Background:
Shown here is a 150-nucleotide sequence from Equus caballus, a member of the family "ODC internal ribosome entry site (IRES)". Lineage of the source: Eukaryota > Euteleostomi > Sarcopterygii > Dipnotetrapodomorpha > Equus. The sequence is in the family's curated seed alignment.
[Rfam]
RNA sequence: AUUUCCACUGCUGCUCUGAGGGCACACGUAUCUUCAGCGGGACUUGGAAUUUCUGGAAAAAUUGCCUUUGUGAAAAGCUGGCAGUACUUCCUUUGAAUGUCAUCUCUUAGUUUUCCACUUCGGUGCGUUUCAGAGGAAAAUCAAGAAACG
Numbered sequence: 001a002u003u004u005c006c007a008c009u010g011c012u013g014c015u016c017u018g019a020g021g022g023c024a025c026a027c028g029u030a031u032c033u034u035c036a037g038c039g040g041g042a043c044u045u046g047g048a049a050u051u052u053c054u055g056g057a058a059a060a061a062u063u064g065c066c067u068u069u070g071u072g073a074a075a076a077g078c079u080g081g082c083a084g085u086a087c088u089u090c091c092u093u094u095g096a097a098u099g100u101c102a103u104c105u106c107u108u109a110g111u112u113u114u115c116c117a118c119u120u121c122g123g124u125g126c127g128u129u130u131c132a133g134a135g136g137a138a139a140a141u142c143a144a145g146a147a148a149c150g
Base pairs, nucleotide, nucleotide: 006081010078011077012076015073016072017070018069019068020067021066022065023064024063026062039054040053041052042051088147089146090145092144093143098138100136101135